RNA sequence: UGCUCACCAGUGAUGUUAAAAAUAAUAAAUGUCUGAACUAAUGAAACUCUGUGAUAUUAACUACUUAUCCUGAGGAGAGCA
Numbered sequence: 001u002g003c004u005c006a007c008c009a010g011u012g013a014u015g016u017u018a019a020a021a022a023u024a025a026u027a028a029a030u031g032u033c034u035g036a037a038c039u040a041a042u043g044a045a046a047c048u049c050u051g052u053g054a055u056a057u058u059a060a061c062u063a064c065u066u067a068u069c070c071u072g073a074g075g076a077g078a079g080c081a
Stems, first nucleotide, its partner, number of pairs: 002080004007075002

Small nucleolar RNA SNORD72: an 81-nucleotide sequence from Clupea harengus. The base pairs follow the family's consensus structure. The literature on the family includes a 2001 paper in EMBO J by Huttenhofer et al., "RNomics: an experimental approach that identifies 201 candidates for novel, small, non-messenger RNAs in mouse". Lineage of the source: Eukaryota > Chordata > Clupeidae > Clupeinae > Clupea. From the family's description: snoRNA HBII-240 belongs to the CD family of snoRNAs. It is the human orthologue of the mouse MBII-240 and is predicted to guide 2'O-ribose methylation of the large 28S rRNA at residue U4590.